[Rfam]
Nucleotides: 244
Stems, first nucleotide, its partner, number of pairs: 001218005007212001010195006017157003021153003026147003033055001035054002038052004064126006078091002100118002103115001196211004224244007233237001
Number, partner (000 for none) and nucleotide at each position: 001218g002217c003216a004215a005214u006000a007212g008000a009000a010195u011194a012193g013192g014191c015190u016000u017157g018156c019155a020000a021153g022152g023151g024000c025000g026147g027146u028145c029000g030000g031000g032000c033055u034000a035054c036053c037000u038052c039051u040050c041049u042000a043000u044000a045000g046000a047000a048000g049041g050040g051039a052038g053036g054035g055033a056000u057000g058000c059000c060000a061000g062000g063000u064126g065125g066124a067123a068122g069121u070000u071000u072000a073000u074000c075000a076000a077000g078091c079090g080000u081000u082000a083000a084000c085000g086000c087000u088000a089000a090079u091078g092000a093000u094000c095000u096000c097000a098000u099000u100118u101117g102000c103115g104000a105000c106000u107000u108000u109000a110000a111000u112000u113000g114000u115103c116000c117101u118100g119000a120000u121069a122068c123067u124066u125065u126064c127000c128000u129000u130000c131000c132000a133000u134000a135000a136000a137000c138000g139000c140000a141000a142000a143000u144000a145028g146027a147026c148000c149000g150000c151023c152022c153021c154000a155019u156018g157017c158000c159000a160000a161000g162000g163000a164000a165000u166000c167000g168000g169000u170000c171000u172000a173000u174000u175000u176000g177000u178000g179000c180000c181000c182000a183000u184000u185000c186000u187000u188000a189000c190015a191014g192013c193012c194011u195010g196211c197210c198209g199208c200000c201000c202000u203000u204000a205000a206000a207000a208199g209198c210197g211196g212007c213000u214005a215004u216003u217002g218001c219000c220000c221000g222000g223000g224244g225243c226242u227241g228240u229239g230238c231000c232000c233237u234000g235000c236000a237233a238230g239229c240228a241227c242226g243225g244224c